[Rfam]
RNA sequence: GUCUAGAUGCAAGAAUUGGCCCCCGUUAUGUUGUCAGGUUUAUGCCUCACAACGUGCGGGGGUUUUCU
Number, nucleotide and partner (000 for none) at each position: 001g000002u000003c000004u000005a000006g000007a000008u000009g000010c000011a000012a000013g000014a000015a000016u000017u000018g064019g063020c062021c061022c060023c059024c058025g057026u056027u000028a000029u054030g053031u052032u051033g050034u000035c000036a047037g046038g045039u000040u000041u000042a000043u000044g000045c038046c037047u036048c000049a000050c033051a032052a031053c030054g029055u000056g026057c025058g024059g023060g022061g021062g020063u019064u018065u000066u000067c000068u000
The record is a 68-nucleotide sequence from Enterobacteriaceae bacterium strain FGI 57, which matches "rdlD antitoxin" in Rfam. The family has 52 seed sequences and 86 matches in Rfam 15.1. Lineage of the source: Bacteria > Pseudomonadati > Pseudomonadota > Gammaproteobacteria > Enterobacteriaceae. Rfam links the family to the GO terms mRNA binding and negative regulation of translation. On this family, see Kawano et al., Mol Microbiol 2002: "Molecular characterization of long direct repeat (LDR) sequences expressing a stable mRNA encoding for a 35-amino-acid cell-killing peptide and a cis-encoded small antisense RNA in Escherichia coli".